[Rfam]
RNA: Nitrogen stress-induced RNA 4
RNA sequence: AAGACAUAAAGUCAAUAUCACCCUCCGAUUGCUAGAGGUCGCCCAUUGCUUCAGUGGCGGCUU
Number, nucleotide and partner (000 for none) at each position: 001a000002a000003g013004a012005c011006a000007u000008a000009a000010a000011g005012u004013c003014a000015a000016u000017a000018u000019c000020a000021c000022c000023c000024u000025c000026c000027g000028a000029u000030u000031g000032c000033u000034a000035g000036a063037g062038g061039u060040c059041g058042c057043c056044c000045a000046u000047u000048g000049c000050u000051u000052c000053a000054g000055u000056g043057g042058c041059g040060g039061c038062u037063u036